[Rfam]
RNA: mir-166 microRNA precursor family
RNA sequence: GUUCAGGGGAAUGGUGUCUGAUUCGAGACCAUUCGUCACAAGUAAACAGUAGCCUUGAGAAUGAUCUCGGACCAGGCUUCAUUCCCCCUAGC
Number, nucleotide and partner (000 for none) at each position: 001g092002u091003u090004c000005a000006g087007g086008g085009g084010a083011a082012u081013g080014g000015u000016g077017u076018c075019u074020g073021a000022u000023u000024c069025g068026a067027g000028a000029c000030c000031a000032u000033u000034c000035g000036u000037c000038a000039c000040a000041a000042g000043u000044a000045a000046a000047c000048a000049g000050u000051a000052g000053c000054c000055u000056u000057g000058a000059g000060a000061a000062u000063g000064a000065u000066c000067u026068c025069g024070g000071a000072c000073c020074a019075g018076g017077c016078u000079u000080c013081a012082u011083u010084c009085c008086c007087c006088c000089u000090a003091g002092c001